[Rfam]
Rfam assigns this 109-nucleotide sequence from Rhizobium sp. Root1212 to the family "EcpR1". Rfam links the family to the GO terms regulation of translation in response to stress, mRNA binding and negative regulation of cell cycle. The base pairs follow the family's consensus structure, which was predicted with WAR. The literature on the family includes a 2011 paper in Genes (Basel) by Reinkensmeier et al., "Conservation and Occurrence of Trans-Encoded sRNAs in the Rhizobiales". About the family: Perviously named SmelC291, SmrC10, or Sra33.
RNA sequence: UUACCCCAUGAUGCUCAGGUCCGCCGCAUCUCCUGGGUCGUGGGGUUUGUCGGCUGAUCAUUGGCAACUGCGGUUCCUCGUGCCGCCGCCAAGAUCAGCCGACGCCCAU
Numbered sequence: 001u002u003a004c005c006c007c008a009u010g011a012u013g014c015u016c017a018g019g020u021c022c023g024c025c026g027c028a029u030c031u032c033c034u035g036g037g038u039c040g041u042g043g044g045g046u047u048u049g050u051c052g053g054c055u056g057a058u059c060a061u062u063g064g065c066a067a068c069u070g071c072g073g074u075u076c077c078u079c080g081u082g083c084c085g086c087c088g089c090c091a092a093g094a095u096c097a098g099c100c101g102a103c104g105c106c107c108a109u
Stems, first nucleotide, its partner, number of pairs: 003046008014037006048104011